[Rfam]
RNA sequence: CCGGUACCGGUUCACACCGCCGAAUCGCGGCGGUGACCCGGCGACC
Numbered sequence: 001c002c003g004g005u006a007c008c009g010g011u012u013c014a015c016a017c018c019g020c021c022g023a024a025u026c027g028c029g030g031c032g033g034u035g036a037c038c039c040g041g042c043g044a045c046c
Stems, first nucleotide, its partner, number of pairs: 003046003007041004015035008